[Rfam]
RNA sequence: GCACCGAUAGCUCAAUUGGAUAGAGUGUCUGGCUUCGAACCAGUUGUUAGGGGUUCGAGUCCCCUUCAGUGCC
Numbered sequence: 001g002c003a004c005c006g007a008u009a010g011c012u013c014a015a016u017u018g019g020a021u022a023g024a025g026u027g028u029c030u031g032g033c034u035u036c037g038a039a040c041c042a043g044u045u046g047u048u049a050g051g052g053g054u055u056c057g058a059g060u061c062c063c064c065u066u067c068a069g070u071g072c073c
Stems, first nucleotide, its partner, number of pairs: 001072004006067002010026004029043004049065005